[Rfam]
RNA sequence: GGUGGUCCUCGGUAGUGGCCGCCGGAGUCCGCGACAGCAUUCUGUCGACGGUGUAUCCGGCGGCUUCGAUCGAUGACCGCA
Numbered sequence: 001g002g003u004g005g006u007c008c009u010c011g012g013u014a015g016u017g018g019c020c021g022c023c024g025g026a027g028u029c030c031g032c033g034a035c036a037g038c039a040u041u042c043u044g045u046c047g048a049c050g051g052u053g054u055a056u057c058c059g060g061c062g063g064c065u066u067c068g069a070u071c072g073a074u075g076a077c078c079g080c081a
Stems, first nucleotide, its partner, number of pairs: 002080006009073005017065010028055001
About this RNA:
The record is an 81-nucleotide sequence from Tsukamurella paurometabola, which matches "Actino-pnp RNA" in Rfam. It scores 60 bits against the family's covariance model.